[Rfam]
RNA sequence: GAUUCACAGACAUGCAGAUUGAAAACCUGCAUGUUUGUGGCC
Numbered sequence: 001g002a003u004u005c006a007c008a009g010a011c012a013u014g015c016a017g018a019u020u021g022a023a024a025a026c027c028u029g030c031a032u033g034u035u036u037g038u039g040g041c042c
Base pairs, nucleotide, nucleotide: 001042005039006038007037008036009035010034011033012032013031014030015029016028017027
Dot-bracket structure: (...(((((((((((((.........)))))))))))))..)